RNA: mir-17 microRNA precursor family
RNA sequence: UCUCUUGUGUUAAGGUGCAUCUAGUGCUGUUAGUGAAGCAGCUUACAAUCUACUGCCCUAAAUGCCCCUUCUCGCACAGGCUA
Numbered sequence: 001u002c003u004c005u006u007g008u009g010u011u012a013a014g015g016u017g018c019a020u021c022u023a024g025u026g027c028u029g030u031u032a033g034u035g036a037a038g039c040a041g042c043u044u045a046c047a048a049u050c051u052a053c054u055g056c057c058c059u060a061a062a063u064g065c066c067c068c069u070u071c072u073c074g075c076a077c078a079g080g081c082u083a
Stems, first nucleotide, its partner, number of pairs: 004080004009075002013069003017065004022060003026056002029054001031052003